The record is a 48-nucleotide RNA sequence from Syntrophotalea carbinolica, which matches "Moco-II RNA" in Rfam.
The family's consensus secondary structure is taken from published work.
Rfam classes the family as a cis-regulatory element.
The sequence is in the family's curated seed alignment.
The organism belongs to Syntrophotalea carbinolica, within Bacteria.
RNA sequence: UGCGCUAAUUUCGGCCUCUGCCCAGAGUGCAGACCCAACGAAACCCGC
Numbered sequence: 001u002g003c004g005c006u007a008a009u010u011u012c013g014g015c016c017u018c019u020g021c022c023c024a025g026a027g028u029g030c031a032g033a034c035c036c037a038a039c040g041a042a043a044c045c046c047g048c
Stems, first nucleotide, its partner, number of pairs: 011041003017033005